A member of the RNA family "Nuclear RNase P", 402 nucleotides long. About the family: Ribonuclease P (RNase P) is a ubiquitous endoribonuclease, found in archaea, bacteria and eukarya as well as chloroplasts and mitochondria. Its best characterised activity is the generation of mature 5'-ends of tRNAs by cleaving the 5'-leader elements of precursor-tRNAs. Cellular RNase Ps are ribonucleoproteins. RNA from bacterial RNase Ps retains its catalytic activity in the absence of the protein subunit, i.e. it is a ribozyme. It is annotated as a ribozyme. Clan: RNaseP clan.
RNA sequence: GGAAGGAAGCUCACUGUAGAGGUCAUGUACGGAGUGCGUCACAACUGUGAUGUCACUCCAUUAAUUCCUCCGGGAAGGUCUGAGACAGGAGCCAUUAGCUGCCCUCACAGGGCGUCACCUGAGUGGGUGAGUGAGUCCCCAGCAACCCCACGCUGGAGUGGACCGGCUCGACACGUGGAGUGGGCUCUGCAGGAGAGGCGGGGUGGACUGCAGUGAGAGGGUGGAGUUACAGAUUGACACUCCCACCCAACUCAGUGAGGCUCCGCCCAGCUGAUGCCGCCCCCUCCCCGGGCCUUGGAAGUGGCUCACGGCUGGCUGUGUUAGUCCAAUGGCUGAGGUGGAGCAGCUGCACGGGAUGUGUGCGCGCCCCAUAACCCAAUUCAGACCACUCUCCGGAAUUCC
Numbered sequence: 001g002g003a004a005g006g007a008a009g010c011u012c013a014c015u016g017u018a019g020a021g022g023u024c025a026u027g028u029a030c031g032g033a034g035u036g037c038g039u040c041a042c043a044a045c046u047g048u049g050a051u052g053u054c055a056c057u058c059c060a061u062u063a064a065u066u067c068c069u070c071c072g073g074g075a076a077g078g079u080c081u082g083a084g085a086c087a088g089g090a091g092c093c094a095u096u097a098g099c100u101g102c103c104c105u106c107a108c109a110g111g112g113c114g115u116c117a118c119c120u121g122a123g124u125g126g127g128u129g130a131g132u133g134a135g136u137c138c139c140c141a142g143c144a145a146c147c148c149c150a151c152g153c154u155g156g157a158g159u160g161g162a163c164c165g166g167c168u169c170g171a172c173a174c175g176u177g178g179a180g181u182g183g184g185c186u187c188u189g190c191a192g193g194a195g196a197g198g199c200g201g202g203g204u205g206g207a208c209u210g211c212a213g214u215g216a217g218a219g220g221g222u223g224g225a226g227u228u229a230c231a232g233a234u235u236g237a238c239a240c241u242c243c244c245a246c247c248c249a250a251c252u253c254a255g256u257g258a259g260g261c262u263c264c265g266c267c268c269a270g271c272u273g274a275u276g277c278c279g280c281c282c283c284c285u286c287c288c289c290g291g292g293c294c295u296u297g298g299a300a301g302u303g304g305c306u307c308a309c310g311g312c313u314g315g316c317u318g319u320g321u322u323a324g325u326c327c328a329a330u331g332g333c334u335g336a337g338g339u340g341g342a343g344c345a346g347c348u349g350c351a352c353g354g355g356a357u358g359u360g361u362g363c364g365c366g367c368c369c370c371a372u373a374a375c376c377c378a379a380u381u382c383a384g385a386c387c388a389c390u391c392u393c394c395g396g397a398a399u400u401c402c
Stems, first nucleotide, its partner, number of pairs: 001402004005394003010337004015332001019070004032058005037052005080384005090313004100114005115130006131309007152293002338372004343367002
Rfam's curators put it in the seed alignment.